[Rfam]
RNA sequence: UUCGAUGACCGGGCCCCUCUGGCGGAAGUGGCGGCGCUUUCGCGAUGUCGGCAUCAUAC
Numbered sequence: 001u002u003c004g005a006u007g008a009c010c011g012g013g014c015c016c017c018u019c020u021g022g023c024g025g026a027a028g029u030g031g032c033g034g035c036g037c038u039u040u041c042g043c044g045a046u047g048u049c050g051g052c053a054u055c056a057u058a059c
Stems, first nucleotide, its partner, number of pairs: 006053002009051004022043008
Rfam assigns this 59-nucleotide RNA sequence from Paenirhodobacter populi to the family "terC RNA". Pairs were carried over by alignment from the consensus structure, which is taken from published work. The family's RNA type in Rfam is cis-regulatory element. A search with the family's covariance model found it, with a score of 52 bits. The source organism's lineage runs through Bacteria, Pseudomonadota, Alphaproteobacteria, Rhodobacterales and Paenirhodobacter.